This 126-nucleotide RNA from Castor canadensis belongs to the Rfam family "Small Cajal body specific RNA 4". A search with the family's covariance model found it, with a score of 85 bits. On this family, see Darzacq et al., EMBO J 2002: "Cajal body-specific small nuclear RNAs: a novel class of 2'-O-methylation and pseudouridylation guide RNAs". Clan: SCARNA4 clan. Pairs were carried over by alignment from the consensus structure, which was predicted with RNAfold.

RNA sequence: UCUGGAGGACCAAGAGGGCUGAGUCUGAUGAAGCAUGACUUCACUGAUAUACCCUUAGACAAAAGGGUUGGAGAGAGAAGCCUUUAUUAGAGAAAAUCUUGAUGCUAAAUGUACUACCCAACAUUC
Numbered sequence: 001u002c003u004g005g006a007g008g009a010c011c012a013a014g015a016g017g018g019c020u021g022a023g024u025c026u027g028a029u030g031a032a033g034c035a036u037g038a039c040u041u042c043a044c045u046g047a048u049a050u051a052c053c054c055u056u057a058g059a060c061a062a063a064a065g066g067g068u069u070g071g072a073g074a075g076a077g078a079a080g081c082c083u084u085u086a087u088u089a090g091a092g093a094a095a096a097u098c099u100u101g102a103u104g105c106u107a108a109a110u111g112u113a114c115u116a117c118c119c120a121a122c123a124u125u126c
Base pairs, nucleotide, nucleotide: 002058003057004055005054007052009050017045018044021041022040023039024038025037065119066118067117068116076110079106080105081104083102084101090097